This 45-nucleotide RNA belongs to the Rfam family "chrB-b RNA".
Pairs were carried over by alignment from the consensus structure, which is taken from published work.
It is one of the family's seed sequences.
RNA sequence: CGGGGACAUGCAGACUCCCCGCGAGACCUAGUGUCCAAGCUCUGC
Number, nucleotide and partner (000 for none) at each position: 001c021002g020003g019004g018005g017006a016007c000008a000009u000010g045011c044012a043013g042014a041015c000016u006017c005018c004019c003020c002021g001022c000023g000024a000025g035026a034027c033028c000029u000030a000031g000032u000033g027034u026035c025036c000037a000038a000039g000040c000041u014042c013043u012044g011045c010